A member of the RNA family "mir-1912 microRNA precursor family" from Pongo pygmaeus, 77 nucleotides long. Its family is annotated with RISC complex and miRNA-mediated post-transcriptional gene silencing in the Gene Ontology. For this family Rfam cites "Ago2 immunoprecipitation identifies predicted microRNAs in human embryonic stem cells and neural precursors" (Goff et al., PLoS One, 2009). Pairs were carried over by alignment from the consensus structure, which was predicted with RNAalifold. The sequence is in the family's curated seed alignment. The organism belongs to Pongo, within Eukaryota.
[Rfam]
RNA sequence: CUCUAGGAUGUGCUCAUUGCAUGGGCUGUGUAUAGUAUUAUUCAAUACCCAGAGCAUGCAGUGUGAACAUAAUAGAG
Numbered sequence: 001c002u003c004u005a006g007g008a009u010g011u012g013c014u015c016a017u018u019g020c021a022u023g024g025g026c027u028g029u030g031u032a033u034a035g036u037a038u039u040a041u042u043c044a045a046u047a048c049c050c051a052g053a054g055c056a057u058g059c060a061g062u063g064u065g066a067a068c069a070u071a072a073u074a075g076a077g
Stems, first nucleotide, its partner, number of pairs: 001077005008070004013065001015063009026052003030048004